[Rfam]
RNA: RNase MRP
RNA sequence: AGGUUCCCUCGAGUGCCACCGCGGAGCUACAAUCGGGAGUCCCAGUGACUCUCAACUGAGCGCUCUGAGCGAAGGUCCCUGGAUCUCGGGCAGAAAGUGCCGCAGCGUGAUCGCUGUUAGCCUCCGCCGUCGGCUCAUCGAAGAGAGGAAGCUUCGGCUGAUCUUUCGAGCCGGGCGCGCGAGUGUAUUGGUCAAAGUAAAGUAAUGUGCUCGCACGUCGCUUUGCGGCGAACUUAACAGGGCCUACUCCGAGGAAACU
Number, nucleotide and partner (000 for none) at each position: 001a000002g259003g258004u257005u256006c000007c254008c253009u252010c251011g250012a000013g000014u000015g210016c000017c209018a208019c207020c000021g000022c067023g066024g065025a064026g063027c062028u000029a000030c000031a000032a000033u000034c000035g000036g000037g051038a050039g049040u048041c047042c000043c000044a000045g000046u000047g041048a040049c039050u038051c037052u000053c000054a000055a000056c000057u000058g000059a000060g000061c000062g027063c026064u025065c024066u023067g022068a000069g000070c000071g000072a000073a245074g244075g243076u000077c242078c241079c240080u239081g000082g000083a000084u000085c000086u000087c000088g000089g101090g100091c099092a098093g000094a000095a000096a000097g000098u092099g091100c090101c089102g117103c116104a115105g114106c113107g112108u000109g000110a000111u000112c107113g106114c105115u104116g103117u102118u000119a184120g000121c000122c000123u000124c000125c000126g000127c000128c177129g176130u175131c174132g000133g171134c170135u169136c168137a000138u000139c000140g000141a165142a164143g163144a162145g000146a000147g000148g000149a000150a000151g158152c157153u000154u000155c000156g000157g152158c151159u000160g000161a000162u144163c143164u142165u141166u000167c000168g136169a135170g134171c133172c000173g000174g131175g130176c129177g128178c000179g000180c000181g000182a000183g000184u119185g000186u000187a000188u000189u000190g000191g000192u000193c000194a000195a000196a000197g000198u000199a000200a000201a000202g000203u000204a000205a000206u000207g019208u018209g017210c015211u000212c000213g229214c228215a000216c227217g226218u225219c000220g000221c000222u000223u000224u000225g218226c217227g216228g214229c213230g000231a000232a000233c000234u000235u000236a000237a000238c000239a080240g079241g078242g077243c075244c074245u073246a000247c000248u000249c000250c011251g010252a009253g008254g007255a000256a005257a004258c003259u002